Shown here is an 84-nucleotide RNA sequence from Blastococcus tunisiensis, a member of the family "ZMP/ZTP riboswitch aptamer (pfl RNA motif)". The family's consensus secondary structure is taken from published work. The organism belongs to Blastococcus, within Bacteria.

[Rfam]
RNA sequence: AGGACGGGCCGUGACUGGCGCGUCGAGGUGGGCCACCACCGGGGAGCGGCCUGGAGGACCCUGCCGUGCGCCUGGGCACCUUCC
Numbered sequence: 001a002g003g004a005c006g007g008g009c010c011g012u013g014a015c016u017g018g019c020g021c022g023u024c025g026a027g028g029u030g031g032g033c034c035a036c037c038a039c040c041g042g043g044g045a046g047c048g049g050c051c052u053g054g055a056g057g058a059c060c061c062u063g064c065c066g067u068g069c070g071c072c073u074g075g076g077c078a079c080c081u082u083c084c
Base pairs, nucleotide, nucleotide: 005053006052007051008050009049010048011047012046015043016042017072018071019070020069021068028039029038030037031036062078063077064076065075